The record is a 152-nucleotide RNA from Papaver nudicaule, which matches "Small nucleolar RNA snoR138" in Rfam. A reference for the family is Chen and Wu (2009), "Mining small RNA sequencing data: a new approach to identify small nucleolar RNAs in Arabidopsis", Nucleic Acids Res.
RNA sequence: UUUGCCUUCGAAUAACUGGAUGUGGAAAUCUGAAGACCACAUUCGGUUCAGACAAGGGCAUAUAAUAAACACAUGAGGGGAUGGUGUUGGAAUUUAUUUCUUCACUUUCUAUUUCCUCUUGAAUCAAUCUUAACGGAAAGGAAUGAAUUUCC
Dot-bracket structure: ..((((((.....((((((((.(((...........))).))))))))......))))))...........((((((..(((.(...((((.........)))).....))))..)))......(..((......))..)..))).......
Numbered sequence: 001u002u003u004g005c006c007u008u009c010g011a012a013u014a015a016c017u018g019g020a021u022g023u024g025g026a027a028a029u030c031u032g033a034a035g036a037c038c039a040c041a042u043u044c045g046g047u048u049c050a051g052a053c054a055a056g057g058g059c060a061u062a063u064a065a066u067a068a069a070c071a072c073a074u075g076a077g078g079g080g081a082u083g084g085u086g087u088u089g090g091a092a093u094u095u096a097u098u099u100c101u102u103c104a105c106u107u108u109c110u111a112u113u114u115c116c117u118c119u120u121g122a123a124u125c126a127a128u129c130u131u132a133a134c135g136g137a138a139a140g141g142a143a144u145g146a147a148u149u150u151c152c
Stems, first nucleotide, its partner, number of pairs: 003060006014048008023039003072145003075118003080113003084110001088104004125140001128137002
The source organism's lineage runs through Eukaryota, Streptophytina, Tracheophyta, Ranunculales and Papaver. The family has 7 seed sequences and 308 matches in Rfam 15.1.